[Rfam]
The record is a 133-nucleotide RNA sequence from Sphaerisporangium melleum, which matches "Group II catalytic intron D1-D4-4" in Rfam.
The literature on the family includes a 2003 paper in Crit Rev Biochem Mol Biol by Lehmann and Schmidt, "Group II introns: structure and catalytic versatility of large natural ribozymes".
A search with the family's covariance model found it, with a score of 64 bits.
The base pairs follow the family's consensus structure.
Group II introns are found in rRNA, tRNA and mRNA of organelles in fungi, plants and protists, and also in mRNA in bacteria.
RNA sequence: UUGCCGGUGGAAGUCCGGUCCGGGUGGCUGCCAGGAGGCCCGGUAGCUGGCCGGCGGCUUCGUCUGGAAACGGGCGGGGUCGAAGCCCAGCGUCGAUCGAAGUGAUCCGGGUCUGAUGGAGGCUCUAUCGAAC
Numbered sequence: 001u002u003g004c005c006g007g008u009g010g011a012a013g014u015c016c017g018g019u020c021c022g023g024g025u026g027g028c029u030g031c032c033a034g035g036a037g038g039c040c041c042g043g044u045a046g047c048u049g050g051c052c053g054g055c056g057g058c059u060u061c062g063u064c065u066g067g068a069a070a071c072g073g074g075c076g077g078g079g080u081c082g083a084a085g086c087c088c089a090g091c092g093u094c095g096a097u098c099g100a101a102g103u104g105a106u107c108c109g110g111g112u113c114u115g116a117u118g119g120a121g122g123c124u125c126u127a128u129c130g131a132a133c
Base pairs, nucleotide, nucleotide: 020043021042022041023040024039050091051090053088054087055082056081057080058079059078060077064073066071099107110126111125